Rfam assigns this 112-nucleotide RNA from Castanea mollissima to the family "Small nucleolar RNA U19". A reference for the family is Marker et al. (2002), "Experimental RNomics: identification of 140 candidates for small non-messenger RNAs in the plant Arabidopsis thaliana", Curr Biol.
RNA sequence: UAUUGGCUUAGUUAGGAGGCAAAGAUUAAUGGAUCAUUAUUGGUCUUCUUAAGUCUUUUGAGGGGACUUUUGGUUCUUUGUCAAUUGUCCUCCAAGCAGUCUUAGGAUAUAA
Numbered sequence: 001u002a003u004u005g006g007c008u009u010a011g012u013u014a015g016g017a018g019g020c021a022a023a024g025a026u027u028a029a030u031g032g033a034u035c036a037u038u039a040u041u042g043g044u045c046u047u048c049u050u051a052a053g054u055c056u057u058u059u060g061a062g063g064g065g066a067c068u069u070u071u072g073g074u075u076c077u078u079u080g081u082c083a084a085u086u087g088u089c090c091u092c093c094a095a096g097c098a099g100u101c102u103u104a105g106g107a108u109a110u111a112a
Stems, first nucleotide, its partner, number of pairs: 004021002007018003032045005048106006054099001057096004062092006070084001